[Rfam]
RNA sequence: AUAGGACUGGUUCGAGAACUCCCAGGAUAAAAAACCAAGGAUUU
Numbered sequence: 001a002u003a004g005g006a007c008u009g010g011u012u013c014g015a016g017a018a019c020u021c022c023c024a025g026g027a028u029a030a031a032a033a034a035c036c037a038a039g040g041a042u043u044u
Stems, first nucleotide, its partner, number of pairs: 007025004016036001